[Rfam]
RNA: Small nucleolar RNA R32/R81/Z41
RNA sequence: GGAUGAAUGUGAGGAAAAUAAAAGAGGGUGAUGAUCAAUUUCAUGUGAUCAAUUUCCUCGCUACGUUCUUUCUGAUUCAUUC
Numbered sequence: 001g002g003a004u005g006a007a008u009g010u011g012a013g014g015a016a017a018a019u020a021a022a023a024g025a026g027g028g029u030g031a032u033g034a035u036c037a038a039u040u041u042c043a044u045g046u047g048a049u050c051a052a053u054u055u056c057c058u059c060g061c062u063a064c065g066u067u068c069u070u071u072c073u074g075a076u077u078c079a080u081u082c
Stems, first nucleotide, its partner, number of pairs: 004079004